Record summary
Shown here is a 56-nucleotide RNA from Anaerofilum sp. An201, a member of the family "GP20-b RNA". The family's RNA type in Rfam is cis-regulatory element. The source organism's lineage runs through Bacteria, Bacillati, Eubacteriales, Oscillospiraceae and Anaerofilum. The base pairs follow the family's consensus structure, which is taken from published work. The match comes from Rfam's covariance-model search (40 bits).

[Rfam]
RNA sequence: UGCCCGGCAUGGCGUAAAACUGCACAGCCCGUGGGAGCGACCCCGUAAAAAGCGCA
Numbered sequence: 001u002g003c004c005c006g007g008c009a010u011g012g013c014g015u016a017a018a019a020c021u022g023c024a025c026a027g028c029c030c031g032u033g034g035g036a037g038c039g040a041c042c043c044c045g046u047a048a049a050a051a052g053c054g055c056a
Base pairs, nucleotide, nucleotide: 001014002013003012004011007023008022009021032045033044034043035042